[Rfam]
RNA sequence: GUCACUUCUCCGCCUUUUGGCUAAGAUCAAGUGUAGUAUCUGUUCUUAUUAGUUUAAUAUCUGAUACGUCCUCUAUCCAAGGGCAAUAUAUUAAAUGGAUUUUUGGAAUUAGAAGAUGGAACAGAGGCUUGCUCUGUCCACUCUGCACAUUGAGCUGGUAUUGCAGUACUUCCAGGAACAGAGCACACACA
Numbered sequence: 001g002u003c004a005c006u007u008c009u010c011c012g013c014c015u016u017u018u019g020g021c022u023a024a025g026a027u028c029a030a031g032u033g034u035a036g037u038a039u040c041u042g043u044u045c046u047u048a049u050u051a052g053u054u055u056a057a058u059a060u061c062u063g064a065u066a067c068g069u070c071c072u073c074u075a076u077c078c079a080a081g082g083g084c085a086a087u088a089u090a091u092u093a094a095a096u097g098g099a100u101u102u103u104u105g106g107a108a109u110u111a112g113a114a115g116a117u118g119g120a121a122c123a124g125a126g127g128c129u130u131g132c133u134c135u136g137u138c139c140a141c142u143c144u145g146c147a148c149a150u151u152g153a154g155c156u157g158g159u160a161u162u163g164c165a166g167u168a169c170u171u172c173c174a175g176g177a178a179c180a181g182a183g184c185a186c187a188c189a190c191a
Stems, first nucleotide, its partner, number of pairs: 007026003012021003047066006068084005112144001114142002118138002124135001126133002148183001150181003155175004
Rfam assigns this 191-nucleotide RNA from Phyllostomus discolor to the family "U2 spliceosomal RNA". Rfam links the family to the GO terms U2 snRNP, pre-mRNA branch point binding and mRNA branch site recognition. From the family's description: U2 is a small nuclear RNA (snRNA) component of the spliceosome (involved in pre-mRNA splicing). Complementary binding between U2 snRNA (in an area lying towards the 5' end but 3' to hairpin I) and the branchpoint sequence (BPS) of the intron results the bulging out of an unpaired adenosine, on the BPS, which initiates a nucleophilic attack at the intronic 5' splice site, thus starting the first of two transesterification reactions that mediate splicing. The family is grouped with related families in Rfam's "U2 clan". Taxonomically the source falls in Phyllostomus (Eukaryota, Euteleostomi, Amniota, Laurasiatheria).